[Rfam]
RNA sequence: UUAACACAAUUUUGUAUGGAGUUGGAACGUCUGCCUACGUUUGCCGCUAGGGGCGCUGUUCCGACUGCAUACUUUGAGUUA
Numbered sequence: 001u002u003a004a005c006a007c008a009a010u011u012u013u014g015u016a017u018g019g020a021g022u023u024g025g026a027a028c029g030u031c032u033g034c035c036u037a038c039g040u041u042u043g044c045c046g047c048u049a050g051g052g053g054c055g056c057u058g059u060u061c062c063g064a065c066u067g068c069a070u071a072c073u074u075u076g077a078g079u080u081a
Stems, first nucleotide, its partner, number of pairs: 008075002014072003018068001020066010034052003039047002
RNA: mir-2807 microRNA precursor family